[Rfam]
RNA sequence: CUCUUAUUCAGAGUGAUGGAGAUACAAAGGAUCUGUGAAGUCACGGCAACCCCGUUAUGAUAGCAAUAUCUACAGGAAGGUGCCAACCUGAGCGAAUAAUUCGAACAAUAAGAG
Numbered sequence: 001c002u003c004u005u006a007u008u009c010a011g012a013g014u015g016a017u018g019g020a021g022a023u024a025c026a027a028a029g030g031a032u033c034u035g036u037g038a039a040g041u042c043a044c045g046g047c048a049a050c051c052c053c054g055u056u057a058u059g060a061u062a063g064c065a066a067u068a069u070c071u072a073c074a075g076g077a078a079g080g081u082g083c084c085a086a087c088c089u090g091a092g093c094g095a096a097u098a099a100u101u102c103g104a105a106c107a108a109u110a111a112g113a114g
Base pairs, nucleotide, nucleotide: 001114002113003112004111005110006109007108008107013044014043015042016041017040021033022032023031030089045084046083047082048081050080051079052076053075093103094102095101096100
RNA: SAM riboswitch aptamer (S box leader)
Organism: Lachnobacterium bovis